[Rfam]
RNA: Group II catalytic intron D1-D4-3
RNA sequence: GGCAUCGCGAGGUGUUGUGGGGAGGAAGCCGAAGGCAAAACGCUGGCCCGACGAACAGGAAUCGCAUACGAGGCACGCAUGUCGGAUGAGGAGCCCAAUAUCUCUAAAGUCCGAUACCUGACCGGAAGGCAUGCGUGUAUAUGCGGCGGGCAUAAGCGUGAAGGUGGGUGCG
Numbered sequence: 001g002g003c004a005u006c007g008c009g010a011g012g013u014g015u016u017g018u019g020g021g022g023a024g025g026a027a028g029c030c031g032a033a034g035g036c037a038a039a040a041c042g043c044u045g046g047c048c049c050g051a052c053g054a055a056c057a058g059g060a061a062u063c064g065c066a067u068a069c070g071a072g073g074c075a076c077g078c079a080u081g082u083c084g085g086a087u088g089a090g091g092a093g094c095c096c097a098a099u100a101u102c103u104c105u106a107a108a109g110u111c112c113g114a115u116a117c118c119u120g121a122c123c124g125g126a127a128g129g130c131a132u133g134c135g136u137g138u139a140u141a142u143g144c145g146g147c148g149g150g151c152a153u154a155a156g157c158g159u160g161a162a163g164g165u166g167g168g169u170g171c172g
Stems, first nucleotide, its partner, number of pairs: 001016006030170002035165002040159005046151005062146006073138003077134007084112004090105004